[Rfam]
RNA sequence: GGGAGUUGAGUGUUGAUGACAUUUAUGUGGACUAGAGUUUCUGAUACUGCCUCUUCAGCAGUACUUUUGAAGACAAACCCUUGGCCGUCUGACCUCCCCC
Numbered sequence: 001g002g003g004a005g006u007u008g009a010g011u012g013u014u015g016a017u018g019a020c021a022u023u024u025a026u027g028u029g030g031a032c033u034a035g036a037g038u039u040u041c042u043g044a045u046a047c048u049g050c051c052u053c054u055u056c057a058g059c060a061g062u063a064c065u066u067u068u069g070a071a072g073a074c075a076a077a078c079c080c081u082u083g084g085c086c087g088u089c090u091g092a093c094c095u096c097c098c099c100c
Base pairs, nucleotide, nucleotide: 001100002099003098005096008093038072039071040070041069045063046062047061048060049059050058
Dot-bracket structure: (((.(..(.............................((((...((((((.......)))))).....))))....................)..).)))